The family of this 121-nucleotide RNA is "Betaproteobacteria-1 RNA". It is one of the family's seed sequences. By type it is a small RNA. The base pairs follow the family's consensus structure, which is taken from published work.

RNA sequence: CGCAGGCGUGGGCGGGAUACCUACCACCAGCGCGCCUGGGAAAAACGGAUGCUGUGGGGGUAAGGUUGAGAAAUCCGGUGCGGUGGCGAAGACAGAGCCGCAACCUGUUUGUCUGUCGGGC
Numbered sequence: 001c002g003c004a005g006g007c008g009u010g011g012g013c014g015g016g017a018u019a020c021c022u023a024c025c026a027c028c029a030g031c032g033c034g035c036c037u038g039g040g041a042a043a044a045a046c047g048g049a050u051g052c053u054g055u056g057g058g059g060g061u062a063a064g065g066u067u068g069a070g071a072a073a074u075c076c077g078g079u080g081c082g083g084u085g086g087c088g089a090a091g092a093c094a095g096a097g098c099c100g101c102a103a104c105c106u107g108u109u110u111g112u113c114u115g116u117c118g119g120g121c
Stems, first nucleotide, its partner, number of pairs: 001040001003038008028054003046077005063106004079102006091117006